[Rfam]
The family of this 188-nucleotide RNA sequence is "malK-I RNA".
RNA sequence: AACUGCGAUACCGGACGACUCCACUUUUCUCGUCCGGCAGCGCUAAUAAAAAGGAGGCGUGUUUUUUCCGUAUCGGCUUGCGGUACAGCAGUGUGGAGACCUGCUGUAAUGCCACGGCCACAUAAGCGGGCGGUGGCGAGCUGCGCAGUUAGCAGAUGCUGUGCGCGGUAAAGCCGUGGUAUAUGGCA
Numbered sequence: 001a002a003c004u005g006c007g008a009u010a011c012c013g014g015a016c017g018a019c020u021c022c023a024c025u026u027u028u029c030u031c032g033u034c035c036g037g038c039a040g041c042g043c044u045a046a047u048a049a050a051a052a053g054g055a056g057g058c059g060u061g062u063u064u065u066u067u068c069c070g071u072a073u074c075g076g077c078u079u080g081c082g083g084u085a086c087a088g089c090a091g092u093g094u095g096g097a098g099a100c101c102u103g104c105u106g107u108a109a110u111g112c113c114a115c116g117g118c119c120a121c122a123u124a125a126g127c128g129g130g131c132g133g134u135g136g137c138g139a140g141c142u143g144c145g146c147a148g149u150u151a152g153c154a155g156a157u158g159c160u161g162u163g164c165g166c167g168g169u170a171a172a173g174c175c176g177u178g179g180u181a182u183a184u185g186g187c188a
Base pairs, nucleotide, nucleotide: 006042007041009039011037012036013035014034015033016032017031018030068083069082070081071080074176075175076174077173078172079171084108085107086106087105088104089103090102091101093100094099111137112136113135114134115133117131118130119129140169141168142167143166144165145164146163147162151160152159153158